Source information: Shown here is an 81-nucleotide sequence from Myotis myotis, a member of the family "mir-574 microRNA precursor family". It scores 87 bits against the family's covariance model. Gene Ontology terms of the family: RISC complex and miRNA-mediated post-transcriptional gene silencing. The literature on the family includes a 2010 paper in Anim Genet by Nielsen et al., "MicroRNA identity and abundance in porcine skeletal muscles determined by deep sequencing". Taxonomically the source falls in Myotis (Eukaryota, Chordata, Amniota, Yangochiroptera). Pairs were carried over by alignment from the consensus structure, which was predicted with RNAalifold.
[Rfam]
RNA sequence: AGGCCUGGAGAGAGAAGCAGGGUCUAAUCUACAGCCUCCGUGGCAGCUGUUGAUCAGCUCUUGCUUCUCUUUCUCUCUGGG
Numbered sequence: 001a002g003g004c005c006u007g008g009a010g011a012g013a014g015a016a017g018c019a020g021g022g023u024c025u026a027a028u029c030u031a032c033a034g035c036c037u038c039c040g041u042g043g044c045a046g047c048u049g050u051u052g053a054u055c056a057g058c059u060c061u062u063g064c065u066u067c068u069c070u071u072u073c074u075c076u077c078u079g080g081g
Stems, first nucleotide, its partner, number of pairs: 008073013022059001024057002027054003032049004